[Rfam]
RNA: mir-148/mir-152 microRNA precursor family
Organism: Salmo salar
RNA sequence: AAGUUCGGUGAUACACUUCGACUCUAAUUGUUUGCAGUCAGUGCAUUACAGAACUUUAU
Numbered sequence: 001a002a003g004u005u006c007g008g009u010g011a012u013a014c015a016c017u018u019c020g021a022c023u024c025u026a027a028u029u030g031u032u033u034g035c036a037g038u039c040a041g042u043g044c045a046u047u048a049c050a051g052a053a054c055u056u057u058a059u
Base pairs, nucleotide, nucleotide: 001056002055003054004053005052006051008049014043015042016041017040020039021038022037023036